The family of this 88-nucleotide sequence from Eubacterium callanderi is "c-di-GMP-I riboswitch aptamer".

[Rfam]
RNA sequence: UUUGAAAUAGGGCAAAACUACUGAAAGGUAGUGACGCAAAGCCAAGGGUCUAAUUCAUCUCAAGAUGAAACGACAGCCGGUUGCUCGG
Numbered sequence: 001u002u003u004g005a006a007a008u009a010g011g012g013c014a015a016a017a018c019u020a021c022u023g024a025a026a027g028g029u030a031g032u033g034a035c036g037c038a039a040a041g042c043c044a045a046g047g048g049u050c051u052a053a054u055u056c057a058u059c060u061c062a063a064g065a066u067g068a069a070a071c072g073a074c075a076g077c078c079g080g081u082u083g084c085u086c087g088g
Stems, first nucleotide, its partner, number of pairs: 012037002017032006040082004046078002048074003055068004